Rfam assigns this 171-nucleotide RNA from Achromobacter sp. AONIH1 to the family "Burkholderia RNA 14". For this family Rfam cites "Experimental identification of small non-coding regulatory RNAs in the opportunistic human pathogen Burkholderia cenocepacia J2315" (Ramos et al., Genomics, 2013). Rfam's curators write: Co-purified with Hfq, expression confirmed by Northern blot. Putative functional homologue of PA-SraF. Overlaps coding sequence. The match comes from Rfam's covariance-model search (68 bits). By type it is a small RNA.
RNA sequence: UUCGGUCGUGACCCUGUCCACCAAGGCGGUUUCCCUGACCACCGAGCUGCCGGGCCGCACCUCGCCGUUCCGCGUGGCCGAGGUCCGGCCGCAGGUCAACGGCAUCGUGCAGAAGCGGCUGUACACCGAAGGCGGCGACGUCAAGGCCGGGCAGCAGCUCUACCAGAUCGA
Numbered sequence: 001u002u003c004g005g006u007c008g009u010g011a012c013c014c015u016g017u018c019c020a021c022c023a024a025g026g027c028g029g030u031u032u033c034c035c036u037g038a039c040c041a042c043c044g045a046g047c048u049g050c051c052g053g054g055c056c057g058c059a060c061c062u063c064g065c066c067g068u069u070c071c072g073c074g075u076g077g078c079c080g081a082g083g084u085c086c087g088g089c090c091g092c093a094g095g096u097c098a099a100c101g102g103c104a105u106c107g108u109g110c111a112g113a114a115g116c117g118g119c120u121g122u123a124c125a126c127c128g129a130a131g132g133c134g135g136c137g138a139c140g141u142c143a144a145g146g147c148c149g150g151g152c153a154g155c156a157g158c159u160c161u162a163c164c165a166g167a168u169c170g171a
Stems, first nucleotide, its partner, number of pairs: 003052003006045003009041002013037001016035001020031001021029002053148004057141002061137001065135004070131001073128001076090005091119002094116001096114001100112001102110003155170001158166002